Overview
This 57-nucleotide RNA sequence from Nakamurella leprariae belongs to the Rfam family "F6 TB sRNA". The organism belongs to Nakamurella, within Bacteria. By type it is a small RNA.
Nucleotides: 057
Base pairs, nucleotide, nucleotide: 002056004054007051008050009049010048011047012046013045014044015043017041018040019039020038021037022036
Number, partner (000 for none) and nucleotide at each position: 001000c002056g003000u004054g005000c006000g007051a008050c009049c010048c011047c012046g013045g014044g015043u016000u017041g018040c019039u020038g021037c022036c023000g024000g025000a026000c027000c028000c029000c030000c031000g032000a033000c034000c035000u036022g037021g038020c039019a040018g041017c042000c043015g044014c045013c046012c047011g048010g049009g050008g051007u052000c053000a054004u055000u056002c057000a